[Rfam]
RNA sequence: CUUAUUGCUGUGAUAAAGAGUAGUAGACUAAUACUAUCAUUUUAGCGAGUCAGGGAAGGUGUGAGCCUGAUAUGAUAAGUUUUUCGAAGGCACUUUGGAGCAAUCUUAUUAAGUGGGUACUUAGGUACCAAAUAGGGUGGAACCGCGGAAGUAACCUUUCGUCCCUAUA
Numbered sequence: 001c002u003u004a005u006u007g008c009u010g011u012g013a014u015a016a017a018g019a020g021u022a023g024u025a026g027a028c029u030a031a032u033a034c035u036a037u038c039a040u041u042u043u044a045g046c047g048a049g050u051c052a053g054g055g056a057a058g059g060u061g062u063g064a065g066c067c068u069g070a071u072a073u074g075a076u077a078a079g080u081u082u083u084u085c086g087a088a089g090g091c092a093c094u095u096u097g098g099a100g101c102a103a104u105c106u107u108a109u110u111a112a113g114u115g116g117g118u119a120c121u122u123a124g125g126u127a128c129c130a131a132a133u134a135g136g137g138u139g140g141a142a143c144c145g146c147g148g149a150a151g152u153a154a155c156c157u158u159u160c161g162u163c164c165c166u167a168u169a
Stems, first nucleotide, its partner, number of pairs: 007101002015096004026085002030081002038074003049071006116129005134166004145162005
Notes: A member of the RNA family "T-box leader" from Anaeromonas frigoriresistens, 169 nucleotides long. Rfam links the family to the GO term tRNA binding. The base pairs follow the family's consensus structure, which is taken from published work. Lineage of the source: Bacteria > Bacillati > Bacillota > Tissierellia > Anaeromonas. For this family Rfam cites "tRNA determinants for transcription antitermination of the Bacillus subtilis tyrS gene" (Grundy et al., RNA, 2000).